[Rfam]
RNA sequence: UUCUUAUCAAGAGAGACGGAGGGAUUGGCCCUUUGAUGUCUCAGCAACCAGCCUCUGGAGGGCACGGUGCUAAUUCCUAUAGGCUUGUCCUAGAAGAUAAGAA
Numbered sequence: 001u002u003c004u005u006a007u008c009a010a011g012a013g014a015g016a017c018g019g020a021g022g023g024a025u026u027g028g029c030c031c032u033u034u035g036a037u038g039u040c041u042c043a044g045c046a047a048c049c050a051g052c053c054u055c056u057g058g059a060g061g062g063c064a065c066g067g068u069g070c071u072a073a074u075u076c077c078u079a080u081a082g083g084c085u086u087g088u089c090c091u092a093g094a095a096g097a098u099a100a101g102a103a
Stems, first nucleotide, its partner, number of pairs: 001103008013042005021031003025079001027077002043071004048067002051063003075095001080092004